[Rfam]
RNA sequence: GAUCUCGUAAGAGAGCUCUCUUCAGUCCACUCAUAGGUAGUAGAUGGAUUCAAUUAGCUGCCGACUCAUUCAUCCAUGUACCCAAGUUAAAGGAUGAUAAAGUAUUAAAUGCUUGGUAUAAGUGAGUGAAUGAUGCGGGAGAUUAGUUGAAUCUUAUGCUUCUUGUACUUGGACUGAAGGGAGCUCCCUACUGAAUUACA
Numbered sequence: 001g002a003u004c005u006c007g008u009a010a011g012a013g014a015g016c017u018c019u020c021u022u023c024a025g026u027c028c029a030c031u032c033a034u035a036g037g038u039a040g041u042a043g044a045u046g047g048a049u050u051c052a053a054u055u056a057g058c059u060g061c062c063g064a065c066u067c068a069u070u071c072a073u074c075c076a077u078g079u080a081c082c083c084a085a086g087u088u089a090a091a092g093g094a095u096g097a098u099a100a101a102g103u104a105u106u107a108a109a110u111g112c113u114u115g116g117u118a119u120a121a122g123u124g125a126g127u128g129a130a131u132g133a134u135g136c137g138g139g140a141g142a143u144u145a146g147u148u149g150a151a152u153c154u155u156a157u158g159c160u161u162c163u164u165g166u167a168c169u170u171g172g173a174c175u176g177a178a179g180g181g182a183g184c185u186c187c188c189u190a191c192u193g194a195a196u197u198a199c200a
Stems, first nucleotide, its partner, number of pairs: 013186008023176007036163001058141002061138003067132004075124003
Dot-bracket structure: ............((((((((..(((((((......(.....................((.(((...((((....(((............................................)))....))))...))).)).....................)......)))))))..))))))))..............